Shown here is a 74-nucleotide RNA sequence, a member of the family "tRNA". It is annotated as a transfer RNA. The base pairs follow the family's consensus structure, which is taken from published work. The sequence is in the family's curated seed alignment.
[Rfam]
RNA sequence: CAAGGUGUAGCGCAAUCUGGUAGCGCGUCUGCCUUGGGCGCAGAAAGUUACAGGUUCAAAUCCUGUCACCUUGA
Numbered sequence: 001c002a003a004g005g006u007g008u009a010g011c012g013c014a015a016u017c018u019g020g021u022a023g024c025g026c027g028u029c030u031g032c033c034u035u036g037g038g039c040g041c042a043g044a045a046a047g048u049u050a051c052a053g054g055u056u057c058a059a060a061u062c063c064u065g066u067c068a069c070c071u072u073g074a
Stems, first nucleotide, its partner, number of pairs: 001073007010026004028044005050066005